Small nucleolar RNA SNORD25: an 88-nucleotide RNA sequence from Oryza sativa. The base pairs follow the family's consensus structure, which was predicted with PFOLD. The organism belongs to Oryza sativa, within Eukaryota.
RNA sequence: GGCAACAGUGAUGAGUCCUUACAGACCUGUAAUGAUUCUUGCGGGAAUGAUCGCUUGAUUCAAAGAACAUCUAAGGGACUGAGUUAUC
Numbered sequence: 001g002g003c004a005a006c007a008g009u010g011a012u013g014a015g016u017c018c019u020u021a022c023a024g025a026c027c028u029g030u031a032a033u034g035a036u037u038c039u040u041g042c043g044g045g046a047a048u049g050a051u052c053g054c055u056u057g058a059u060u061c062a063a064a065g066a067a068c069a070u071c072u073a074a075g076g077g078a079c080u081g082a083g084u085u086a087u088c
Stems, first nucleotide, its partner, number of pairs: 002087001004085003
Its family is annotated with RNA processing and nucleolus in the Gene Ontology. The family is grouped with related families in Rfam's "SNORD25 clan".